[Rfam]
This 56-nucleotide sequence from Burkholderia multivorans belongs to the Rfam family "nhaA-I RNA". Rfam's curators write: Acidobacteria, Alphaproteobacteria, Betaproteobacteria and Gammaproteobacteria, Verrucomicrobia, cand. division NC10. It is one of the family's seed sequences. By type it is a riboswitch. The source organism's lineage runs through Bacteria, Betaproteobacteria, Burkholderiales, Burkholderia and Burkholderia multivorans.
RNA sequence: GGGUGUUAGCUGCAUUCCGCAGCGAAACAGGUUCAUGCGUCGGUCGGGCCGCCACG
Numbered sequence: 001g002g003g004u005g006u007u008a009g010c011u012g013c014a015u016u017c018c019g020c021a022g023c024g025a026a027a028c029a030g031g032u033u034c035a036u037g038c039g040u041c042g043g044u045c046g047g048g049c050c051g052c053c054a055c056g
Stems, first nucleotide, its partner, number of pairs: 005028003009023003038056003042053003